Shown here is a 113-nucleotide RNA from Marispirochaeta aestuarii, a member of the family "TPP riboswitch aptamer (THI element)". The family's consensus secondary structure is taken from published work.
[Rfam]
RNA sequence: UCAUACACCUUGGGGUGCCGGAAUUGGCCGGCUGAGAGGGGGGCCCGCAAAGUCCCCGACCCACGAACCUGAUCCGGAUAAUGCCGGCGUAGGAAAGCGUGAGGUUGAUUCUU
Numbered sequence: 001u002c003a004u005a006c007a008c009c010u011u012g013g014g015g016u017g018c019c020g021g022a023a024u025u026g027g028c029c030g031g032c033u034g035a036g037a038g039g040g041g042g043g044c045c046c047g048c049a050a051a052g053u054c055c056c057c058g059a060c061c062c063a064c065g066a067a068c069c070u071g072a073u074c075c076g077g078a079u080a081a082u083g084c085c086g087g088c089g090u091a092g093g094a095a096a097g098c099g100u101g102a103g104g105u106u107g108a109u110u111c112u113u
Stems, first nucleotide, its partner, number of pairs: 006101003010097001011063004017032005039056004068093004074087004